[Rfam]
RNA sequence: GGUCGUCAGACGCAGAGGACAGGAGCGGGGGACCCACUCCGCACGGAGAUCGCCGGCAGCCGUCAGGCCGCCGGCUCGGGGUGAAGCCGCACCACGCGGCCGGGGCACUUCCAGUCCCGAACCCGACAGCUCACUUCGCAGGCGUGCUGGAAGGGCUU
Numbered sequence: 001g002g003u004c005g006u007c008a009g010a011c012g013c014a015g016a017g018g019a020c021a022g023g024a025g026c027g028g029g030g031g032a033c034c035c036a037c038u039c040c041g042c043a044c045g046g047a048g049a050u051c052g053c054c055g056g057c058a059g060c061c062g063u064c065a066g067g068c069c070g071c072c073g074g075c076u077c078g079g080g081g082u083g084a085a086g087c088c089g090c091a092c093c094a095c096g097c098g099g100c101c102g103g104g105g106c107a108c109u110u111c112c113a114g115u116c117c118c119g120a121a122c123c124c125g126a127c128a129g130c131u132c133a134c135u136u137c138g139c140a141g142g143c144g145u146g147c148u149g150g151a152a153g154g155g156c157u158u
Stems, first nucleotide, its partner, number of pairs: 003024002025139006035078001079124003087099004102118004

The family of this 158-nucleotide RNA from Motilibacter rhizosphaerae is "c-di-AMP riboswitch aptamer (ydaO/yuaA leader)". Pairs were carried over by alignment from the consensus structure. NCBI's taxonomy places the organism under Bacteria, Actinomycetota, Actinomycetes, Motilibacterales, Motilibacter. About the family: This family represents a conserved RNA structure found upstream of the ydaO and yuaA genes in Bacillus subtilis and related genes in other bacteria.